[Rfam]
The record is a 139-nucleotide RNA from Cnephaeus nilssonii, which matches "Small nucleolar RNA SNORA48" in Rfam. From the family's description: The snoRNA ACA 48 has been identified to guide pseudouridylation of the residue U3797 in the 28S rRNA subunit. The source organism's lineage runs through Eukaryota, Dipnotetrapodomorpha, Eutheria, Vespertilionidae and Cnephaeus. The literature on the family includes a 1997 paper in J Mol Biol by Ofengand and Bakin, "Mapping to nucleotide resolution of pseudouridine residues in large subunit ribosomal RNAs from representative eukaryotes, prokaryotes, archaebacteria, mitochondria and chloroplasts". The match comes from Rfam's covariance-model search (66 bits). Clan: SNORA48 clan.
RNA sequence: UACCCUGGCAAUGGGCAAGGAGACACCUGAUUGGUGGUGUUGCUCUUUUAUCAAUCAGGGGCAAAGCAGAUUACAUCCUUAGUUCAUCUAGCUUGAUGCUGUGUUGGUGGCCAGAGCUGUUUCAUGCCUGAGCACAUAA
Numbered sequence: 001u002a003c004c005c006u007g008g009c010a011a012u013g014g015g016c017a018a019g020g021a022g023a024c025a026c027c028u029g030a031u032u033g034g035u036g037g038u039g040u041u042g043c044u045c046u047u048u049u050a051u052c053a054a055u056c057a058g059g060g061g062c063a064a065a066g067c068a069g070a071u072u073a074c075a076u077c078c079u080u081a082g083u084u085c086a087u088c089u090a091g092c093u094u095g096a097u098g099c100u101g102u103g104u105u106g107g108u109g110g111c112c113a114g115a116g117c118u119g120u121u122u123c124a125u126g127c128c129u130g131a132g133c134a135c136a137u138a139a
Base pairs, nucleotide, nucleotide: 001063003061004060005059006058008056012053013052014051018047019046020045022041023040024039025038026037027036080134082133083132084131085130095128097126103122107118